A member of the RNA family "c-di-GMP-I-UAU riboswitch aptamer" from Syntrophotalea carbinolica, 77 nucleotides long.
Rfam 15.1 lists 17 matches to the family in 17 species.
Gene Ontology term of the family: cyclic-di-GMP binding.
A search with the family's covariance model found it, with a score of 66 bits.
Clan: c-di-GMP_I riboswitch clan.
[Rfam]
RNA sequence: GGAUAUAUCGGCAAAGCCGGAGUAAUCCGGUGACGCAAAGCCACGGGUCCUCAUUGAGGAUAGCCGGGUUGCUGAAG
Numbered sequence: 001g002g003a004u005a006u007a008u009c010g011g012c013a014a015a016g017c018c019g020g021a022g023u024a025a026u027c028c029g030g031u032g033a034c035g036c037a038a039a040g041c042c043a044c045g046g047g048u049c050c051u052c053a054u055u056g057a058g059g060a061u062a063g064c065c066g067g068g069u070u071g072c073u074g075a076a077g
Stems, first nucleotide, its partner, number of pairs: 011036002016031006039070004044066003047061006